[Rfam]
RNA sequence: ACACUUCACAUUAAGCGGGCGGGGCCUAUAUAGGUCCUGCCCGUUUUUGCGGGCUAUGGCGAUAAACUGCGGCGUGCAAUAGGCGCAACGGACCCGGGGGCAGUACCCGGCGGCUCCACCACAAAGCCCGGCGAAAUCCGGGGUUUAUGACGGGGCCGAACCAGGAUCGACGUGUGUUGAAAGACGUUGUUUUCGCCCGGGCUGAGUAACCCGUUCAAGGCUCAAAACCUACAAGUGCCAACGACAACGAAGCACUUGCUCUCGCUGCGUAAUGUGACGGCCUAACGGCCUGAAUUUACAAAGCCUAGAGCACGGUUCGGACCGAACCGGGUAACAGAAUCGGAAACC
Numbered sequence: 001a002c003a004c005u006u007c008a009c010a011u012u013a014a015g016c017g018g019g020c021g022g023g024g025c026c027u028a029u030a031u032a033g034g035u036c037c038u039g040c041c042c043g044u045u046u047u048u049g050c051g052g053g054c055u056a057u058g059g060c061g062a063u064a065a066a067c068u069g070c071g072g073c074g075u076g077c078a079a080u081a082g083g084c085g086c087a088a089c090g091g092a093c094c095c096g097g098g099g100g101c102a103g104u105a106c107c108c109g110g111c112g113g114c115u116c117c118a119c120c121a122c123a124a125a126g127c128c129c130g131g132c133g134a135a136a137u138c139c140g141g142g143g144u145u146u147a148u149g150a151c152g153g154g155g156c157c158g159a160a161c162c163a164g165g166a167u168c169g170a171c172g173u174g175u176g177u178u179g180a181a182a183g184a185c186g187u188u189g190u191u192u193u194c195g196c197c198c199g200g201g202c203u204g205a206g207u208a209a210c211c212c213g214u215u216c217a218a219g220g221c222u223c224a225a226a227a228c229c230u231a232c233a234a235g236u237g238c239c240a241a242c243g244a245c246a247a248c249g250a251a252g253c254a255c256u257u258g259c260u261c262u263c264g265c266u267g268c269g270u271a272a273u274g275u276g277a278c279g280g281c282c283u284a285a286c287g288g289c290c291u292g293a294a295u296u297u298a299c300a301a302a303g304c305c306u307a308g309a310g311c312a313c314g315g316u317u318c319g320g321a322c323c324g325a326a327c328c329g330g331g332u333a334a335c336a337g338a339a340u341c342g343g344a345a346a347c348c
Stems, first nucleotide, its partner, number of pairs: 039054005058197005069190007084176003088173003094110005111158007198213004203224003313329004322342001324340001
The record is a 348-nucleotide RNA sequence from Altererythrobacter sp. BO-6, which matches "Alphaproteobacteria transfer-messenger RNA" in Rfam. For this family Rfam cites "BRUCE: a program for the detection of transfer-messenger RNA genes in nucleotide sequences" (Laslett et al., Nucleic Acids Res, 2002). Bacterial tmRNA, also known as 10Sa RNA or SsrA, is named for its dual tRNA and mRNA-like properties. Its role is to liberate the mRNA from a stalled ribosome. To accomplish this part of the tmRNA is used as a reading frame that ends in a translation stop signal. The broken mRNA is replaced in the ribosome by the tmRNA and translation of the tmRNA leads to addition of a proteolysis tag to the incomplete protein enabling recognition by a protease. Recently a number of permuted tmRNA genes have been found encoded in two parts. tmRNAs have been identified in eubacteria and some chloroplasts but are absent from archaeal and eukaryote nuclear genomes.